The record is a 130-nucleotide RNA sequence from Camellia sinensis, which matches "MIR168 microRNA precursor family" in Rfam.
The literature on the family includes a 2002 paper in Genes Dev by Reinhart et al., "MicroRNAs in plants".
The base pairs follow the family's consensus structure, which was predicted with WAR.
RNA sequence: GUUACGGCGGACUCUAAUUCGCUUGGUGCAGGUCGGGAACUACUUCGCUGGUGGCGGCAAUUGAUUUUGAUUGAUUCGGGGGCGAAUCGGGUCCUGCCUUGCAUCAACUGAAUCAGAGACCGCCGUGAAC
Numbered sequence: 001g002u003u004a005c006g007g008c009g010g011a012c013u014c015u016a017a018u019u020c021g022c023u024u025g026g027u028g029c030a031g032g033u034c035g036g037g038a039a040c041u042a043c044u045u046c047g048c049u050g051g052u053g054g055c056g057g058c059a060a061u062u063g064a065u066u067u068u069g070a071u072u073g074a075u076u077c078g079g080g081g082g083c084g085a086a087u088c089g090g091g092u093c094c095u096g097c098c099u100u101g102c103a104u105c106a107a108c109u110g111a112a113u114c115a116g117a118g119a120c121c122g123c124c125g126u127g128a129a130c
Base pairs, nucleotide, nucleotide: 013117014116017113018112019111020110023107024106025105026104027103028102029101030100031099032098034096035095036094037093038092040090041089